[Rfam]
RNA: Small nucleolar RNA SNORA32
Organism: Castor canadensis
RNA sequence: UGCUCAUUACCAAGGCUUUAAGAAUGCAUUCUCUCAUUUGCUGUGGACAUGACCAUAAAAAAGCUUCCCACUAGGUUUUCUAUAUGCUACCUUGAUAGCAAUCAACCUAUUGAGAGCAAUG
Numbered sequence: 001u002g003c004u005c006a007u008u009a010c011c012a013a014g015g016c017u018u019u020a021a022g023a024a025u026g027c028a029u030u031c032u033c034u035c036a037u038u039u040g041c042u043g044u045g046g047a048c049a050u051g052a053c054c055a056u057a058a059a060a061a062a063g064c065u066u067c068c069c070a071c072u073a074g075g076u077u078u079u080c081u082a083u084a085u086g087c088u089a090c091c092u093u094g095a096u097a098g099c100a101a102u103c104a105a106c107c108u109a110u111u112g113a114g115a116g117c118a119a120u121g
Stems, first nucleotide, its partner, number of pairs: 004052004010046003026041003067114001069112002074107004085100003